[Rfam]
Shown here is a 210-nucleotide RNA sequence from Desulfofarcimen acetoxidans, a member of the family "Enterococcus sRNA 1300". Expressed in mid and late exponential phases of growth. Expression remained uniform under daptomycin exposure. A search with the family's covariance model found it, with a score of 95 bits. On this family, see Sinel et al., Sci Rep 2017: "Small RNAs in vancomycin-resistant Enterococcus faecium involved in daptomycin response and resistance".
RNA sequence: AUGUGGUCUAUUCGUUUAAGAUAAGCCAACAAUAAAAAAGUGGCAAUACCAUCCACAAUUGUGGGCUUUUUUGUUGUGCUUAUUUUGCGAAUCAGGACAUGGAUACGGGUGAAGUGUAAACCAUUUAGGUUAUACGUUUUUUCUCGUGUGUCUUUAACGUUGAUAUGCAGACUAAAGCUCGCAUUGCGGAUUUUAGUCUGCAUUUUUUAU
Numbered sequence: 001a002u003g004u005g006g007u008c009u010a011u012u013c014g015u016u017u018a019a020g021a022u023a024a025g026c027c028a029a030c031a032a033u034a035a036a037a038a039a040g041u042g043g044c045a046a047u048a049c050c051a052u053c054c055a056c057a058a059u060u061g062u063g064g065g066c067u068u069u070u071u072u073g074u075u076g077u078g079c080u081u082a083u084u085u086u087g088c089g090a091a092u093c094a095g096g097a098c099a100u101g102g103a104u105a106c107g108g109g110u111g112a113a114g115u116g117u118a119a120a121c122c123a124u125u126u127a128g129g130u131u132a133u134a135c136g137u138u139u140u141u142u143c144u145c146g147u148g149u150g151u152c153u154u155u156a157a158c159g160u161u162g163a164u165a166u167g168c169a170g171a172c173u174a175a176a177g178c179u180c181g182c183a184u185u186g187c188g189g190a191u192u193u194u195a196g197u198c199u200g201c202a203u204u205u206u207u208u209a210u
Base pairs, nucleotide, nucleotide: 007096008095009094012091013089014088015087019085020084021083022082023081024080025079026078029077030076031075032074033073034072035071036070037069038068039067043066044065049064050063051062052061098148099147100146101145102144111140112139113138114137115136116135117134118133120130121129122128165203166202167201168200169199170198172196173195175193176192177191179189180188181187182186